[Rfam]
RNA sequence: GUUUGCAUGAUGACUUGAAUUGUCGGAUACCCCUUCACCCCGUUCAUGGGUGAGAAACAGCUAGUCUGACAAAC
Numbered sequence: 001g002u003u004u005g006c007a008u009g010a011u012g013a014c015u016u017g018a019a020u021u022g023u024c025g026g027a028u029a030c031c032c033c034u035u036c037a038c039c040c041c042g043u044u045c046a047u048g049g050g051u052g053a054g055a056a057a058c059a060g061c062u063a064g065u066c067u068g069a070c071a072a073a074c
Base pairs, nucleotide, nucleotide: 001074002073003072004071005070